This 186-nucleotide RNA from Desulforamulus ruminis belongs to the Rfam family "Lysine riboswitch aptamer". NCBI's taxonomy places the organism under Bacteria, Bacillati, Eubacteriales, Desulforamulus, Desulforamulus ruminis. Its family is annotated with lysine biosynthetic process in the Gene Ontology.

RNA sequence: CGGUGGGGUAGAGGUUGCGGCUUGUAUCAGUAGCCUGUGGGAGAUGUGGAGACAUCGCAGAAAACAGGGGAAAGGAUAAGCUGCCGAAAUUGCCGUGUUUCUCCGGACCGGCAGUUGGGUCUGUUUCCGAACAGGGGCAGAACUGUCACGGUUACUUGCCAUUGACCGUGGAGCGCUAUCUUCAGU
Numbered sequence: 001c002g003g004u005g006g007g008g009u010a011g012a013g014g015u016u017g018c019g020g021c022u023u024g025u026a027u028c029a030g031u032a033g034c035c036u037g038u039g040g041g042a043g044a045u046g047u048g049g050a051g052a053c054a055u056c057g058c059a060g061a062a063a064a065c066a067g068g069g070g071a072a073a074g075g076a077u078a079a080g081c082u083g084c085c086g087a088a089a090u091u092g093c094c095g096u097g098u099u100u101c102u103c104c105g106g107a108c109c110g111g112c113a114g115u116u117g118g119g120u121c122u123g124u125u126u127c128c129g130a131a132c133a134g135g136g137g138c139a140g141a142a143c144u145g146u147c148a149c150g151g152u153u154a155c156u157u158g159c160c161a162u163u164g165a166c167c168g169u170g171g172a173g174c175g176c177u178a179u180c181u182u183c184a185g186u
Stems, first nucleotide, its partner, number of pairs: 006181006017084009034068005088116008098106002117144002120141008146171009